Notes: Rfam assigns this 72-nucleotide RNA sequence from Eptatretus burgeri to the family "Small nucleolar RNA SNORD59". A search with the family's covariance model found it, with a score of 57 bits. The base pairs follow the family's consensus structure, which was predicted with ILM. Gene Ontology terms of the family: nucleolus and RNA processing. On this family, see Galardi et al., Mol Cell Biol 2002: "Purified box C/D snoRNPs are able to reproduce site-specific 2'-O-methylation of target RNA in vitro".
RNA sequence: CCUCCUAUGAUGAUUUUAUUUGACUUUCGUUCUCCUGAAUGUGAUGAAGACAUUUUUGAUAACUGAUGGAGG
Numbered sequence: 001c002c003u004c005c006u007a008u009g010a011u012g013a014u015u016u017u018a019u020u021u022g023a024c025u026u027u028c029g030u031u032c033u034c035c036u037g038a039a040u041g042u043g044a045u046g047a048a049g050a051c052a053u054u055u056u057u058g059a060u061a062a063c064u065g066a067u068g069g070a071g072g
Stems, first nucleotide, its partner, number of pairs: 001072003005068001